RNA sequence: AUUAAAUAUUGGCACACUAAUCGAAAGAUUAGGUCGCAAAGCCUUGGAGUCUAACAGUCAUAACGACUAAUGAUCGUCCGGUUGCAUUU
Numbered sequence: 001a002u003u004a005a006a007u008a009u010u011g012g013c014a015c016a017c018u019a020a021u022c023g024a025a026a027g028a029u030u031a032g033g034u035c036g037c038a039a040a041g042c043c044u045u046g047g048a049g050u051c052u053a054a055c056a057g058u059c060a061u062a063a064c065g066a067c068u069a070a071u072g073a074u075c076g077u078c079c080g081g082u083u084g085c086a087u088u089u
Stems, first nucleotide, its partner, number of pairs: 012037002017032006040083004046079003049074003056068004
RNA: c-di-GMP-I riboswitch aptamer